Shown here is a 181-nucleotide RNA from Saccharomyces kudriavzevii, a member of the family "Small nucleolar RNA snR85". Rfam links the family to the GO terms RNA processing and nucleolus. The sequence is in the family's curated seed alignment.
[Rfam]
RNA sequence: CACUAGCACAUAUGUCAAAUUCCUAAUUAACGUUUUAUUCUUUAUAUCCAUCGUUUCUUAGAGCCGUAAUUGUGCUGAUAUCAAUACCAGGGAAGGACACACAGCAAACAUUUGCUGGAUCCACGUCACACCCGUGGCGACUUCUCGGCCACGGGCGUAUUUGGACCUUUUUCUCACAUAC
Dot-bracket structure: ...(((((((............((((..((((...................))))..)))).........)))))))............(((((.......(.(......(.((.......)).)..((...((.(((.........))).))...))...).)......)))))......
Numbered sequence: 001c002a003c004u005a006g007c008a009c010a011u012a013u014g015u016c017a018a019a020u021u022c023c024u025a026a027u028u029a030a031c032g033u034u035u036u037a038u039u040c041u042u043u044a045u046a047u048c049c050a051u052c053g054u055u056u057c058u059u060a061g062a063g064c065c066g067u068a069a070u071u072g073u074g075c076u077g078a079u080a081u082c083a084a085u086a087c088c089a090g091g092g093a094a095g096g097a098c099a100c101a102c103a104g105c106a107a108a109c110a111u112u113u114g115c116u117g118g119a120u121c122c123a124c125g126u127c128a129c130a131c132c133c134g135u136g137g138c139g140a141c142u143u144c145u146c147g148g149c150c151a152c153g154g155g156c157g158u159a160u161u162u163g164g165a166c167c168u169u170u171u172u173c174u175c176a177c178a179u180a181c
Stems, first nucleotide, its partner, number of pairs: 004077007023061004029055004090175005102164001104162001111125001113123002128158002133153002136150003
By type it is an H/ACA-box small nucleolar RNA. The base pairs follow the family's consensus structure, which was predicted with WAR. NCBI's taxonomy places the organism under Eukaryota, Opisthokonta, Fungi, Saccharomycetes, Saccharomyces kudriavzevii.